[Rfam]
RNA sequence: AAAAAAAUAGGGCUGUCCAUAGACGGACAGCCCUUCUUUUUGCUUUCAAACGUUGAAGCAAAAAGCAAAGGGAGAGGAGAAACCGGUAGAAGAACUUAUGGGGAAAUAAGUCUUCUCCGUUU
Numbered sequence: 001a002a003a004a005a006a007a008u009a010g011g012g013c014u015g016u017c018c019a020u021a022g023a024c025g026g027a028c029a030g031c032c033c034u035u036c037u038u039u040u041u042g043c044u045u046u047c048a049a050a051c052g053u054u055g056a057a058g059c060a061a062a063a064a065g066c067a068a069a070g071g072g073a074g075a076g077g078a079g080a081a082a083c084c085g086g087u088a089g090a091a092g093a094a095c096u097u098a099u100g101g102g103g104a105a106a107u108a109a110g111u112c113u114u115c116u117c118c119g120u121u122u
Stems, first nucleotide, its partner, number of pairs: 010033009034072005042059005084119003089115004094111005
RNA: ylbH leader
Organism: Halobacillus andaensis